[Rfam]
RNA: Bacterial RNase P class A
RNA sequence: AGAGUAGGCGAGGCGGUUGCAGAUUCUUUUUAUAAAGAGUCUGAGGAAAGUCCGGGCUUCCGAAAGACCAGACUUGCUGGAUAACUCCCAGUGCGCGCGAGCGUGAGGAUAGUGCCACAGAAAGAUACCGCCAAUCGAUUUUGGAUUUUGGAUUGUGGAUUUUGGAUUUAAUCUAAAAUCGUAAAUCUAAAAUCUAAAAUCUUGGUAAGGGUGCAAAGGUGCGGUAAGAGCGCACCAGCAGCAUCGAGAGGUGCUGGCUCGGUAAACCCCGGUUGGAAGCAAGGUAAUGGAACUACGGUUGGUCUUUUACCAGUUCCGUUAAAUGAGCCGCUUGAGGCGUUUGGUAACAAAUGUCCCAGAUAGAUAACUGCCGUUUAAUAUAGAGAUGCUAUACGUAGUGUUUCUUAUUAGAUAACAGAACCCGGCUUAUGUCCGACUCUCUCU
Number, nucleotide and partner (000 for none) at each position: 001a440002g439003a438004g437005u436006a000007g434008g433009c000010g000011a430012g372013g371014c370015g369016g368017u367018u366019g000020c043021a042022g041023a040024u039025u038026c037027u036028u035029u000030u000031u000032a000033u000034a000035a028036a027037g026038a025039g024040u023041c022042u021043g020044a000045g000046g000047a000048a428049a427050g426051u000052c425053c424054g423055g422056g421057c279058u278059u277060c276061c000062g000063a000064a000065a000066g308067a307068c000069c000070a000071g274072a273073c272074u000075u271076g270077c091078u090079g089080g088081a000082u000083a000084a000085c000086u000087c000088c080089c079090a078091g077092u106093g104094c103095g102096c101097g000098c000099g000100a000101g096102c095103g094104u093105g000106a092107g269108g268109a000110u000111a000112g267113u266114g263115c262116c261117a000118c000119a000120g000121a000122a000123a000124g000125a000126u000127a000128c210129c209130g206131c205132c204133a203134a202135u000136c000137g201138a200139u199140u198141u197142u196143g195144g194145a193146u192147u191148u190149u189150g188151g187152a186153u185154u184155g000156u000157g000158g000159a000160u000161u000162u000163u000164g000165g000166a000167u000168u000169u000170a000171a000172u000173c000174u000175a000176a000177a000178a000179u000180c000181g000182u000183a000184a154185a153186u152187c151188u150189a149190a148191a147192a146193u145194c144195u143196a142197a141198a140199a139200u138201c137202u134203u133204g132205g131206u130207a000208a000209g129210g128211g000212u000213g000214c000215a000216a000217a000218g236219g235220u234221g233222c232223g231224g000225u000226a000227a000228g000229a000230g000231c223232g222233c221234a220235c219236c218237a000238g258239c256240a255241g254242c253243a252244u251245c250246g000247a000248g000249a000250g245251g244252u243253g242254c241255u240256g239257g000258c238259u000260c000261g116262g115263u114264a000265a000266a113267c112268c108269c107270c076271g075272g073273u072274u071275g000276g060277a059278a058279g057280c000281a000282a000283g329284g328285u327286a320287a319288u318289g317290g316291a315292a000293c000294u000295a000296c000297g000298g000299u313300u312301g311302g310303u309304c000305u000306u000307u067308u066309a303310c302311c301312a300313g299314u000315u291316c290317c289318g288319u287320u286321a000322a000323a000324u000325g000326a000327g285328c284329c283330g000331c000332u000333u000334g000335a000336g355337g354338c353339g352340u351341u350342u349343g348344g000345u000346a000347a000348c343349a342350a341351a340352u339353g338354u337355c336356c000357c000358a000359g000360a000361u000362a000363g000364a000365u000366a018367a017368c016369u015370g014371c013372c012373g000374u000375u000376u000377a000378a000379u000380a000381u000382a000383g000384a000385g000386a000387u000388g000389c000390u000391a000392u000393a000394c000395g000396u000397a000398g000399u000400g000401u000402u000403u000404c000405u000406u000407a000408u000409u000410a000411g000412a000413u000414a000415a000416c000417a000418g000419a000420a000421c056422c055423c054424g053425g052426c050427u049428u048429a000430u011431g000432u000433c008434c007435g000436a005437c004438u003439c002440u001441c000442u000443c000444u000